[Rfam]
This 84-nucleotide sequence from Penaeus vannamei belongs to the Rfam family "mir-981 microRNA precursor family". Pairs were carried over by alignment from the consensus structure, which was predicted with RNAalifold. It scores 61 bits against the family's covariance model. The organism belongs to Penaeus, within Eukaryota.
RNA sequence: UGUUGGACGCUUCAGGUUUCGCGAUUUUCGAACUGUGAUUUUAGGAAACGGUUCGUUGUCGUCGAAACCUGCAUUGUUGCAACA
Numbered sequence: 001u002g003u004u005g006g007a008c009g010c011u012u013c014a015g016g017u018u019u020c021g022c023g024a025u026u027u028u029c030g031a032a033c034u035g036u037g038a039u040u041u042u043a044g045g046a047a048a049c050g051g052u053u054c055g056u057u058g059u060c061g062u063c064g065a066a067a068c069c070u071g072c073a074u075u076g077u078u079g080c081a082a083c084a
Stems, first nucleotide, its partner, number of pairs: 001084005013071009030054005